[Rfam]
The family of this 126-nucleotide RNA from Tupaia belangeri is "Small nucleolar RNA SNORA44". NCBI's taxonomy places the organism under Eukaryota, Opisthokonta, Amniota, Theria, Tupaia belangeri. Its family is annotated with nucleolus and RNA processing in the Gene Ontology. Rfam 15.1 lists 1,056 matches to the family in 599 species. It scores 91 bits against the family's covariance model. The family's consensus secondary structure was predicted with PFOLD.
RNA sequence: UAGCGUGUUUCCAAGGGCCAUGCGCUGGUGGCCACGGGCUCUUCACCUGCCUGCGAGAGCAGCCUGGAGGGACUUGGACUGCCCAGGUCACAGGGCACCUGCAGCUGCACUGGCCUUCCUGUGCUU
Numbered sequence: 001u002a003g004c005g006u007g008u009u010u011c012c013a014a015g016g017g018c019c020a021u022g023c024g025c026u027g028g029u030g031g032c033c034a035c036g037g038g039c040u041c042u043u044c045a046c047c048u049g050c051c052u053g054c055g056a057g058a059g060c061a062g063c064c065u066g067g068a069g070g071g072a073c074u075u076g077g078a079c080u081g082c083c084c085a086g087g088u089c090a091c092a093g094g095g096c097a098c099c100u101g102c103a104g105c106u107g108c109a110c111u112g113g114c115c116u117u118c119c120u121g122u123g124c125u126u
Base pairs, nucleotide, nucleotide: 011037012036016033017032018031019030020029021028066119067118068117069116070115071114081108082107084101085100086099087098